[Rfam]
RNA sequence: AAAGGAGCAAUAAUCAACUUCUUGUUCUAUAAAGAGGAUUGGUAUUACUCCUUUAUUC
Number, nucleotide and partner (000 for none) at each position: 001a054002a053003a052004g051005g050006a049007g048008c000009a046010a045011u044012a043013a000014u041015c000016a000017a000018c000019u036020u035021c034022u033023u032024g000025u000026u000027c000028u000029a000030u000031a000032a023033a022034g021035a020036g019037g000038a000039u000040u000041g014042g000043u012044a011045u010046u009047a000048c007049u006050c005051c004052u003053u002054u001055a000056u000057u000058c000
The family of this 58-nucleotide RNA from Carya illinoinensis is "Plastid-psbA-3 3UTR RNA". A reference for the family is Richter et al. (2023), "Retrograde signaling in plants: A critical review focusing on the GUN pathway and beyond", Plant Commun. The organism belongs to Carya, within Eukaryota. Plastid psbA-3 is a non-coding RNA (ncRNA) present in plastids. It was identified in inverted repeat sequences in the 3 prime untranslate region (3UTR) of photosystem II quinone-binding protein (psbA).